[Rfam]
RNA sequence: AAUCCUUUUUAAAGUAGUCCUGUGAGGCUAAAAAGAGGAUUGUUUACUAGACCUAUGUCUUGUUUAGUAGCAGUCUAUCUCCUUAGCCUUUGUGGCUAAGGAGUUUUUAUUU
Number, nucleotide and partner (000 for none) at each position: 001a000002a000003u038004c037005c000006u035007u034008u033009u032010u000011a000012a000013a000014g000015u030016a029017g028018u027019c026020c000021u000022g000023u000024g000025a000026g019027g018028c017029u016030a015031a000032a009033a008034a007035g006036a000037g004038g003039a000040u000041u072042g071043u070044u000045u069046a068047c067048u066049a065050g064051a063052c062053c000054u000055a000056u000057g000058u000059c000060u000061u000062g052063u051064u050065u049066a048067g047068u046069a045070g043071c042072a041073g000074u000075c000076u000077a105078u000079c103080u102081c101082c100083u099084u098085a097086g096087c095088c094089u000090u000091u000092g000093u000094g088095g087096c086097u085098a084099a083100g082101g081102a080103g079104u000105u077106u000107u000108u000109a000110u000111u000112u000